[Rfam]
RNA sequence: CGGCCGGGCCGAUGCAAGGGUCGGCCGUGAACCUGGUCAGGUCCGAGAGGAAGCAGCCAUAAACGGUCCCGGUUCUGUGCCGUCGUCUCCCGGCCGUCU
Numbered sequence: 001c002g003g004c005c006g007g008g009c010c011g012a013u014g015c016a017a018g019g020g021u022c023g024g025c026c027g028u029g030a031a032c033c034u035g036g037u038c039a040g041g042u043c044c045g046a047g048a049g050g051a052a053g054c055a056g057c058c059a060u061a062a063a064c065g066g067u068c069c070c071g072g073u074u075c076u077g078u079g080c081c082g083u084c085g086u087c088u089c090c091c092g093g094c095c096g097u098c099u
Base pairs, nucleotide, nucleotide: 004093005092006091007090008089010085011084012083013082014081015077017076018075019074020073021072022071023068024067025066026065027064028063034059035058036057037056042051043050044049

The family of this 99-nucleotide sequence from a Phycisphaerae bacterium is "Bacterial small signal recognition particle RNA".